[Rfam]
The record is a 99-nucleotide RNA sequence from Dorcoceras hygrometricum, which matches "Small nucleolar RNA Z43" in Rfam. Its family is annotated with nucleolus and RNA processing in the Gene Ontology. Taxonomically the source falls in Dorcoceras (Eukaryota, Streptophytina, Mesangiospermae, Gesneriaceae). The family's consensus secondary structure was predicted with PFOLD. It scores 85 bits against the family's covariance model.
RNA sequence: GGGCGAUGAUGAUCAAAUGUGAUAAGGUCUCGUUCGUCGUAAUGGCAUCUAGAUGCCUUGCCGACCAUCCUGAUAUAUCACCACCCAUAAACUGAGUCC
Numbered sequence: 001g002g003g004c005g006a007u008g009a010u011g012a013u014c015a016a017a018u019g020u021g022a023u024a025a026g027g028u029c030u031c032g033u034u035c036g037u038c039g040u041a042a043u044g045g046c047a048u049c050u051a052g053a054u055g056c057c058u059u060g061c062c063g064a065c066c067a068u069c070c071u072g073a074u075a076u077a078u079c080a081c082c083a084c085c086c087a088u089a090a091a092c093u094g095a096g097u098c099c
Base pairs, nucleotide, nucleotide: 001099002098003097004096047059